RNA sequence: AAGCAGGAUUUAGACUACAAUAUAGGUGCUAAGUGCUGUGUUGUCGUUCCCCCUGCUAAAAAUAAAGUUAUUUCUUUACUAUACCUGUCUGCUAUGCUCCAGUAGCAGCCAGGGACGCUUGGUCUCAUACAU
Dot-bracket structure: ..(((((.........(((((((((..........))))))))).......)))))...........................((((.((((............)))).))))...................

Rfam assigns this 132-nucleotide RNA sequence from Muntiacus reevesi to the family "Small nucleolar RNA SNORA63". Rfam 15.1 lists 1,279 matches to the family in 601 species. Its family is annotated with RNA processing and nucleolus in the Gene Ontology. By type it is an H/ACA-box small nucleolar RNA. The organism belongs to Muntiacus, within Eukaryota. The literature on the family includes a 1997 paper in Proc Natl Acad Sci U S A by Mishra and Eliceiri, "Three small nucleolar RNAs that are involved in ribosomal RNA precursor processing". It scores 142 bits against the family's covariance model.